[Rfam]
RNA sequence: GUGAAGUGAUGAUGAAGUUUAUCCAUUCUCAGAGUGCAGUGGUGCUACCCUCCUGCAGCGCCCAGAUUCCUGUUCUAGGGUCUGAGUGCUGUGCAGCCUCCAGAGACCCUCCAGUCUCCCAGUGUCCUACUGGGAGCUGCUGUGGUGUGUGGCUUGCUGCCUGCAGGAGGAAGUGGUGCCAGCAGGGUUGGAACCUCUCUUGGGGUCUCCGUUCCCCACCGAGAUGAGGGAUGAUGUCUGAUCAC
Numbered sequence: 001g002u003g004a005a006g007u008g009a010u011g012a013u014g015a016a017g018u019u020u021a022u023c024c025a026u027u028c029u030c031a032g033a034g035u036g037c038a039g040u041g042g043u044g045c046u047a048c049c050c051u052c053c054u055g056c057a058g059c060g061c062c063c064a065g066a067u068u069c070c071u072g073u074u075c076u077a078g079g080g081u082c083u084g085a086g087u088g089c090u091g092u093g094c095a096g097c098c099u100c101c102a103g104a105g106a107c108c109c110u111c112c113a114g115u116c117u118c119c120c121a122g123u124g125u126c127c128u129a130c131u132g133g134g135a136g137c138u139g140c141u142g143u144g145g146u147g148u149g150u151g152g153c154u155u156g157c158u159g160c161c162u163g164c165a166g167g168a169g170g171a172a173g174u175g176g177u178g179c180c181a182g183c184a185g186g187g188u189u190g191g192a193a194c195c196u197c198u199c200u201u202g203g204g205g206u207c208u209c210c211g212u213u214c215c216c217c218a219c220c221g222a223g224a225u226g227a228g229g230g231a232u233g234a235u236g237u238c239u240g241a242u243c244a245c
Stems, first nucleotide, its partner, number of pairs: 010244004017237002020234001023230002026228003030223001034219002039183002042180001043178006050170001051168007059088003063084003068080004093160005106146002112139003116136009185215003189211004194205002
The record is a 245-nucleotide sequence from Geococcyx californianus, which matches "Small nucleolar RNA SNORD17" in Rfam. The family has 19 seed sequences and 1,015 matches in Rfam 15.1. Gene Ontology terms of the family: RNA processing and nucleolus.